[Rfam]
RNA: Cyano-1 RNA
Organism: Gomphosphaeria aponina
RNA sequence: GAUUGUGUGAGGAGGGACAGAAAGUAAAAAGCUCUUGGGGUCGAAACACGGCAAGACUCCCAAGAGCUUUUUGCA
Numbered sequence: 001g002a003u004u005g006u007g008u009g010a011g012g013a014g015g016g017a018c019a020g021a022a023a024g025u026a027a028a029a030a031g032c033u034c035u036u037g038g039g040g041u042c043g044a045a046a047c048a049c050g051g052c053a054a055g056a057c058u059c060c061c062a063a064g065a066g067c068u069u070u071u072u073g074c075a
Base pairs, nucleotide, nucleotide: 015071028070029069030068031067032066035063036062037061038060039059040057041056042055